[Rfam]
A member of the RNA family "Small nucleolar RNA SNORD47" from Leptobrachium leishanense, 73 nucleotides long. It scores 68 bits against the family's covariance model. The family's RNA type in Rfam is C/D-box small nucleolar RNA.

RNA sequence: AACCAAUGAUGAAAAUGAUUCUGCCAUAUGAAUCCUGAUUUAACCCUUUACCGUUCCACUUUAUUCUGAGGUU
Numbered sequence: 001a002a003c004c005a006a007u008g009a010u011g012a013a014a015a016u017g018a019u020u021c022u023g024c025c026a027u028a029u030g031a032a033u034c035c036u037g038a039u040u041u042a043a044c045c046c047u048u049u050a051c052c053g054u055u056c057c058a059c060u061u062u063a064u065u066c067u068g069a070g071g072u073u
Base pairs, nucleotide, nucleotide: 001073002072003071004070